[Rfam]
RNA sequence: AUAACUUGCUAGGGGAGCUUUCGCUGAGAUUGAAUCUAUCGAGUGUUUUACCGCACCGGAUUCUAACCCUCAUUACCUGAUACGGCUAGUACCGUCGUAGGGAAGCACAAGUAAUUACCG
Numbered sequence: 001a002u003a004a005c006u007u008g009c010u011a012g013g014g015g016a017g018c019u020u021u022c023g024c025u026g027a028g029a030u031u032g033a034a035u036c037u038a039u040c041g042a043g044u045g046u047u048u049u050a051c052c053g054c055a056c057c058g059g060a061u062u063c064u065a066a067c068c069c070u071c072a073u074u075a076c077c078u079g080a081u082a083c084g085g086c087u088a089g090u091a092c093c094g095u096c097g098u099a100g101g102g103a104a105g106c107a108c109a110a111g112u113a114a115u116u117a118c119c120g
Stems, first nucleotide, its partner, number of pairs: 007107004011070004016064001017024002032063006076101004082095004